[Rfam]
RNA: Makes More Granules Regulator RNA (mmgR)
RNA sequence: AGAACAGGCCUUUCAGGCAUCCUCUCCCAAACACUUCCAAGGGCUGGUCUUCGGACCGGCCCCUUUUUUUGCCUUUC
Numbered sequence: 001a002g003a004a005c006a007g008g009c010c011u012u013u014c015a016g017g018c019a020u021c022c023u024c025u026c027c028c029a030a031a032c033a034c035u036u037c038c039a040a041g042g043g044c045u046g047g048u049c050u051u052c053g054g055a056c057c058g059g060c061c062c063c064u065u066u067u068u069u070u071g072c073c074u075u076u077c
Stems, first nucleotide, its partner, number of pairs: 008018004041062009